Plastid-atpF group II-D1 intron: a 53-nucleotide RNA from Brassica oleracea. A reference for the family is Richter et al. (2023), "Retrograde signaling in plants: A critical review focusing on the GUN pathway and beyond", Plant Commun. Rfam describes the family as follows. Plastid atpF is a non-coding RNA (ncRNA) recognised in plastids. It has been reported in the intron group II-D1 region of ATP synthase (atpF) genes.

RNA sequence: UCAGAUUUUUUCGAUAUAAAACACUCAUGUCGAUAAAAAAAUUUGAGUCUUUU
Numbered sequence: 001u002c003a004g005a006u007u008u009u010u011u012c013g014a015u016a017u018a019a020a021a022c023a024c025u026c027a028u029g030u031c032g033a034u035a036a037a038a039a040a041a042u043u044u045g046a047g048u049c050u051u052u053u
Stems, first nucleotide, its partner, number of pairs: 011033007

Rfam links the family to the GO term Group II intron splicing.